The family of this 81-nucleotide RNA from Oceanisphaera arctica is "antisense RNA of dnaA mRNA". It scores 70 bits against the family's covariance model. Its family is annotated with regulation of mRNA stability in the Gene Ontology.

RNA sequence: CUUGGCAUCGGCCUUGCGGGCGCGAAUGCCGUUGCCUACCGCGUGCAGCAGGUGAGUCUUACCCAGGCCGGUACCGCCAUA
Numbered sequence: 001c002u003u004g005g006c007a008u009c010g011g012c013c014u015u016g017c018g019g020g021c022g023c024g025a026a027u028g029c030c031g032u033u034g035c036c037u038a039c040c041g042c043g044u045g046c047a048g049c050a051g052g053u054g055a056g057u058c059u060u061a062c063c064c065a066g067g068c069c070g071g072u073a074c075c076g077c078c079a080u081a
Base pairs, nucleotide, nucleotide: 005042006041010037011036013034016032017031018030020029021028051078052077053076054075056074057073061072062071063070